Rfam assigns this 145-nucleotide sequence from Paenirhizobium selenitireducens to the family "Alphaproteobacterial sRNA ar7". The source organism's lineage runs through Bacteria, Pseudomonadota, Hyphomicrobiales, Paenirhizobium and Paenirhizobium selenitireducens. By type it is a small RNA. On this family, see del Val et al., RNA Biol 2012: "A survey of sRNA families in alpha-proteobacteria".
[Rfam]
RNA sequence: CACCGGCGCCUGAUCACGCCGCAGUCUGAAAGAGGCUCGUCCCCCGCCGCUUCAGACUGGACAAAGGCCUUAUCCCCCUCUCCGGGCCUUUGUCCCUCGUUUCGAAGCCGCCAUCGCGUCCGCCUCCACGCAAUGGCGGCUUCUU
Numbered sequence: 001c002a003c004c005g006g007c008g009c010c011u012g013a014u015c016a017c018g019c020c021g022c023a024g025u026c027u028g029a030a031a032g033a034g035g036c037u038c039g040u041c042c043c044c045c046g047c048c049g050c051u052u053c054a055g056a057c058u059g060g061a062c063a064a065a066g067g068c069c070u071u072a073u074c075c076c077c078c079u080c081u082c083c084g085g086g087c088c089u090u091u092g093u094c095c096c097u098c099g100u101u102u103c104g105a106a107g108c109c110g111c112c113a114u115c116g117c118g119u120c121c122g123c124c125u126c127c128a129c130g131c132a133a134u135g136g137c138g139g140c141u142u143c144u145u
Stems, first nucleotide, its partner, number of pairs: 025056006034048003059095011105141001108139007116131004